[Rfam]
RNA sequence: ACGCCCAGGAUGCGGAACGGGUUCCGUGGCCGGGCAGGUGUCCGGAUACCCUGACGGCGUGCAUCCCCGAAUACGGAGGGGACGCAUAGCCGACAGCCGUCGCACCCAGGGAGUCGCCCCAUG
Numbered sequence: 001a002c003g004c005c006c007a008g009g010a011u012g013c014g015g016a017a018c019g020g021g022u023u024c025c026g027u028g029g030c031c032g033g034g035c036a037g038g039u040g041u042c043c044g045g046a047u048a049c050c051c052u053g054a055c056g057g058c059g060u061g062c063a064u065c066c067c068c069g070a071a072u073a074c075g076g077a078g079g080g081g082a083c084g085c086a087u088a089g090c091c092g093a094c095a096g097c098c099g100u101c102g103c104a105c106c107c108a109g110g111g112a113g114u115c116g117c118c119c120c121a122u123g
Stems, first nucleotide, its partner, number of pairs: 060086003065081004089103002092101003
The record is a 123-nucleotide RNA sequence from Streptomyces sp. TLI_235, which matches "Streptomyces-metH RNA" in Rfam. The match comes from Rfam's covariance-model search (80 bits). Pairs were carried over by alignment from the consensus structure, which is taken from published work.